[Rfam]
The record is a 95-nucleotide RNA sequence from Symbiobacterium thermophilum, which matches "Selenocysteine transfer RNA" in Rfam.
The organism belongs to Symbiobacterium thermophilum, within Bacteria.
Gene Ontology term of the family: triplet codon-amino acid adaptor activity.
The family's consensus secondary structure is taken from published work.
RNA sequence: GGGAGUAGAUCGGGUCCUGGUGGCCCGCACGGUCUUCAAAACCGCUUGAGCCGUAGUGAUCCUGCGGCUGGUGGGUUCGAUUCCCACAUACUCCC
Numbered sequence: 001g002g003g004a005g006u007a008g009a010u011c012g013g014g015u016c017c018u019g020g021u022g023g024c025c026c027g028c029a030c031g032g033u034c035u036u037c038a039a040a041a042c043c044g045c046u047u048g049a050g051c052c053g054u055a056g057u058g059a060u061c062c063u064g065c066g067g068c069u070g071g072u073g074g075g076u077u078c079g080a081u082u083c084c085c086a087c088a089u090a091c092u093c094c095c
Base pairs, nucleotide, nucleotide: 001095002094003093004092005091006090007089008087011027012026013025014024015023016022030044031043032042033041049069050068051067052066053065072086073085074084075083